This 58-nucleotide sequence from Pseudomonas sp. M47T1 belongs to the Rfam family "Xanthine riboswitch aptamer (NMT1 RNA)".
Gene Ontology term of the family: purine nucleobase binding.
Rfam's curators put it in the seed alignment.
The literature on the family includes a 2021 paper in Nucleic Acids Res by Xu et al., "Insights into xanthine riboswitch structure and metal ion-mediated ligand recognition".

RNA sequence: UUCCCGAGUAGAAGCGGUCAGCGCCGGCCCCGUGCCAGCGUAGGACAUUGCUCUUGCG
Numbered sequence: 001u002u003c004c005c006g007a008g009u010a011g012a013a014g015c016g017g018u019c020a021g022c023g024c025c026g027g028c029c030c031c032g033u034g035c036c037a038g039c040g041u042a043g044g045a046c047a048u049u050g051c052u053c054u055u056g057c058g
Stems, first nucleotide, its partner, number of pairs: 006053005015043001018045002021041004026036002